[Rfam]
RNA sequence: AGAAUCAGAGAUGAAAACACAGUCCCCGUUGGGUAGUCGUGGGCGUGCGAUUAGAUCGCAUCAGUAACCUGCCUCCUUGGUUGUCCCUUCUCUGUGUGGCCUAU
Numbered sequence: 001a002g003a004a005u006c007a008g009a010g011a012u013g014a015a016a017a018c019a020c021a022g023u024c025c026c027c028g029u030u031g032g033g034u035a036g037u038c039g040u041g042g043g044c045g046u047g048c049g050a051u052u053a054g055a056u057c058g059c060a061u062c063a064g065u066a067a068c069c070u071g072c073c074u075c076c077u078u079g080g081u082u083g084u085c086c087c088u089u090c091u092c093u094g095u096g097u098g099g100c101c102u103a104u
Stems, first nucleotide, its partner, number of pairs: 006094006022044002025042002027039002045061006071081003